[Rfam]
RNA sequence: CUGAUGCCUGCGUUAGCGAUUGUAGUGUAAAUCCUUUUUAUGAGGCACGAUUAAAAAGAUUGCAACGUAAAGCGCGACCCUUG
Numbered sequence: 001c002u003g004a005u006g007c008c009u010g011c012g013u014u015a016g017c018g019a020u021u022g023u024a025g026u027g028u029a030a031a032u033c034c035u036u037u038u039u040a041u042g043a044g045g046c047a048c049g050a051u052u053a054a055a056a057a058g059a060u061u062g063c064a065a066c067g068u069a070a071a072g073c074g075c076g077a078c079c080c081u082u083g
Base pairs, nucleotide, nucleotide: 016075017074018073020071021070025066026065030061031060032059033058036056037055038054039053040052
RNA: Flavo-1 RNA
Organism: Olleya namhaensis